[Rfam]
RNA: skipping-rope RNA
RNA sequence: AUUCUUUGAGGUGGUAAAUUUCGCGUCAACCACACGCCGCCGGUACAGACAGGGAAAUCUGAGAGAUGCAGGGGAACGGCACGCCUGCCAAAGAAU
Numbered sequence: 001a002u003u004c005u006u007u008g009a010g011g012u013g014g015u016a017a018a019u020u021u022c023g024c025g026u027c028a029a030c031c032a033c034a035c036g037c038c039g040c041c042g043g044u045a046c047a048g049a050c051a052g053g054g055a056a057a058u059c060u061g062a063g064a065g066a067u068g069c070a071g072g073g074g075a076a077c078g079g080c081a082c083g084c085c086u087g088c089c090a091a092a093g094a095a096u
Stems, first nucleotide, its partner, number of pairs: 001096008011033005025080003035063001037053002068088005